[Rfam]
The family of this 183-nucleotide sequence from Tolypothrix sp. NIES-4075 is "c-di-AMP riboswitch aptamer (ydaO/yuaA leader)". Rfam's curators write: This family represents a conserved RNA structure found upstream of the ydaO and yuaA genes in Bacillus subtilis and related genes in other bacteria. Taxonomically the source falls in Tolypothrix (Bacteria, Bacillati, Cyanobacteriota, Cyanophyceae). The base pairs follow the family's consensus structure.
RNA sequence: CAAAUUUCAUUACUUAAACAGUUUAGGUGUGAGAUGCUAGAGCGGAGGAACCAUAAUUUGGGGCGUAUUUUAUAGAAAGUUAAAAGUGAGGAGUUUUGAACUCAUAACUCAUAACUUUCUUAAGAAGGGUAUUUCUCAACCCUAGCCCGUCAGCUAACUUCGUAGGCAUUGAGAAGAGACUGA
Numbered sequence: 001c002a003a004a005u006u007u008c009a010u011u012a013c014u015u016a017a018a019c020a021g022u023u024u025a026g027g028u029g030u031g032a033g034a035u036g037c038u039a040g041a042g043c044g045g046a047g048g049a050a051c052c053a054u055a056a057u058u059u060g061g062g063g064c065g066u067a068u069u070u071u072a073u074a075g076a077a078a079g080u081u082a083a084a085a086g087u088g089a090g091g092a093g094u095u096u097u098g099a100a101c102u103c104a105u106a107a108c109u110c111a112u113a114a115c116u117u118u119c120u121u122a123a124g125a126a127g128g129g130u131a132u133u134u135c136u137c138a139a140c141c142c143u144a145g146c147c148c149g150u151c152a153g154c155u156a157a158c159u160u161c162g163u164a165g166g167c168a169u170u171g172a173g174a175a176g177a178g179a180c181u182g183a
Base pairs, nucleotide, nucleotide: 001165005041006040007039042163043162044161045160046159047158052060053059061148062147063146069124070123071122072121127142128141129140130139